[Rfam]
RNA sequence: CGUAAAACCAAGGGGUGUCCUGCUAAGGGGCUGAGAUGCGGUGCUGCCGCAAACUCUUCGAACCUGAUCCGGGUUAUGCCGGCGUAGGGAUGGAAGCUGCGGACCUG
Numbered sequence: 001c002g003u004a005a006a007a008c009c010a011a012g013g014g015g016u017g018u019c020c021u022g023c024u025a026a027g028g029g030g031c032u033g034a035g036a037u038g039c040g041g042u043g044c045u046g047c048c049g050c051a052a053a054c055u056c057u058u059c060g061a062a063c064c065u066g067a068u069c070c071g072g073g074u075u076a077u078g079c080c081g082g083c084g085u086a087g088g089g090a091u092g093g094a095a096g097c098u099g100c101g102g103a104c105c106u107g
Stems, first nucleotide, its partner, number of pairs: 008093003011057004016051001017031005038050005063088004069082004
Shown here is a 107-nucleotide RNA sequence from Rubritepida sp., a member of the family "TPP riboswitch aptamer (THI element)". The family's consensus secondary structure is taken from published work. It scores 75 bits against the family's covariance model.